[Rfam]
RNA sequence: CAAUUCUGUUUGUAGGAACAAAGAGAAACAGGUUUAUUUUAUACCCGAUAAGUAUCAAUACGCAAUGAGG
Numbered sequence: 001c002a003a004u005u006c007u008g009u010u011u012g013u014a015g016g017a018a019c020a021a022a023g024a025g026a027a028a029c030a031g032g033u034u035u036a037u038u039u040u041a042u043a044c045c046c047g048a049u050a051a052g053u054a055u056c057a058a059u060a061c062g063c064a065a066u067g068a069g070g
Stems, first nucleotide, its partner, number of pairs: 004023002007020005044069001046067001052061003

This 70-nucleotide RNA sequence from Dendrophthoe pentandra belongs to the Rfam family "Plastid-clpP 5UTR RNA".
The family's RNA type in Rfam is cis-regulatory element.
Pairs were carried over by alignment from the consensus structure, which was predicted with LocARNA.
The literature on the family includes a 2023 paper in Plant Commun by Richter et al., "Retrograde signaling in plants: A critical review focusing on the GUN pathway and beyond".
About the family: Plastid clpP is a non-coding RNA (ncRNA) recognised in plastids. It was found in the prime untranslated region (5UTR) of a protease complex subunit (clpP) in plastids, suggesting a posible cis-regulatory function.